[Rfam]
RNA sequence: CGGAGUGGUGGUGAUGACCUGGUUGGACUAGAGUCUCUGAGCAUUUCUCUGAGGAUCUUUGAAACCAUCUGAUCCACUCA
Numbered sequence: 001c002g003g004a005g006u007g008g009u010g011g012u013g014a015u016g017a018c019c020u021g022g023u024u025g026g027a028c029u030a031g032a033g034u035c036u037c038u039g040a041g042c043a044u045u046u047c048u049c050u051g052a053g054g055a056u057c058u059u060u061g062a063a064a065c066c067a068u069c070u071g072a073u074c075c076a077c078u079c080a
Base pairs, nucleotide, nucleotide: 003079004078005077006076007075008074017073019071021069022068023067025065030058031057032056034054035053036052037051039049040048041047

This 80-nucleotide RNA sequence from Pipistrellus kuhlii belongs to the Rfam family "Small nucleolar RNA ZL8". The source organism's lineage runs through Eukaryota, Opisthokonta, Metazoa, Deuterostomia and Pipistrellus. A search with the family's covariance model found it, with a score of 82 bits. The family has 6 seed sequences and 113 matches in Rfam 15.1. A reference for the family is Kishore et al. (2013), "Insights into snoRNA biogenesis and processing from PAR-CLIP of snoRNA core proteins and small RNA sequencing", Genome Biol. Rfam classes the family as a C/D-box small nucleolar RNA.